[Rfam]
RNA sequence: UAGAUAGGCGUAGGCGAUUGUUUUGGAAUGCCGAUUAAUCAUGCCGUAUCCGCUGGCAUGAGUGGAAUUAGAGCUGCGGGCGAUCUCGUUGCACGAGUGC
Numbered sequence: 001u002a003g004a005u006a007g008g009c010g011u012a013g014g015c016g017a018u019u020g021u022u023u024u025g026g027a028a029u030g031c032c033g034a035u036u037a038a039u040c041a042u043g044c045c046g047u048a049u050c051c052g053c054u055g056g057c058a059u060g061a062g063u064g065g066a067a068u069u070a071g072a073g074c075u076g077c078g079g080g081c082g083a084u085c086u087c088g089u090u091g092c093a094c095g096a097g098u099g100c
Stems, first nucleotide, its partner, number of pairs: 010035002013032004018026002073092002076089002079086002

The record is a 100-nucleotide RNA from Sporomusa ovata, which matches "Pyrrolysine insertion sequence mtbB" in Rfam. It is annotated as a cis-regulatory element. It scores 67 bits against the family's covariance model.